[Rfam]
Nucleotides: 054
Stems, first nucleotide, its partner, number of pairs: 013043001014041003020036006
Number, partner (000 for none) and nucleotide at each position: 001000u002000g003000c004000a005000g006000g007000c008000a009000u010000g011000a012000c013043u014041g015040u016039a017000a018000a019000u020036c021035a022034c023033u024032u025031u026000g027000g028000a029000u030000a031025a032024a033023a034022g035021u036020g037000g038000c039016u040015g041014c042000u043013a044000a045000a046000u047000g048000g049000c050000a051000u052000a053000u054000a

The family of this 54-nucleotide RNA sequence from Oncorhynchus kisutch is "UnaL2 LINE 3' element". On this family, see Baba et al., RNA 2004: "Solution structure of an RNA stem-loop derived from the 3' conserved region of eel LINE UnaL2". Rfam's curators write: The eel long interspersed element (LINE) UnaL2 and its partner short interspersed element (SINE) share a conserved 3' tail containing a stem-loop that is critical for their retrotransposition. The organism belongs to Oncorhynchus, within Eukaryota.